[Rfam]
RNA sequence: ACAAGGUCAUAUGACUGACGGAAUCAGUGGAAUCAACCACAUGAAGUAUGAUCAUUAACAAGCCGACCGUCUGGGCAAUCUGC
Number, nucleotide and partner (000 for none) at each position: 001a000002c000003a055004a000005g053006g052007u051008c050009a049010u048011a047012u046013g000014a000015c043016u000017g071018a070019c069020g068021g067022a000023a000024u000025c000026a000027g040028u039029g038030g037031a000032a000033u000034c000035a000036a000037c030038c029039a028040c027041a000042u000043g015044a000045a000046g012047u011048a010049u009050g008051a007052u006053c005054a000055u003056u000057a000058a000059c000060a000061a000062g076063c075064c074065g000066a000067c021068c020069g019070u018071c017072u000073g000074g064075g063076c062077a000078a000079u000080c000081u000082g000083c000
The family of this 83-nucleotide RNA from Anaerostipes sp. 494a is "ZMP/ZTP riboswitch aptamer (pfl RNA motif)". NCBI's taxonomy places the organism under Bacteria, Bacillota, Lachnospirales, Lachnospiraceae, Anaerostipes. Its family is annotated with regulation of purine nucleotide biosynthetic process and one-carbon metabolic process in the Gene Ontology.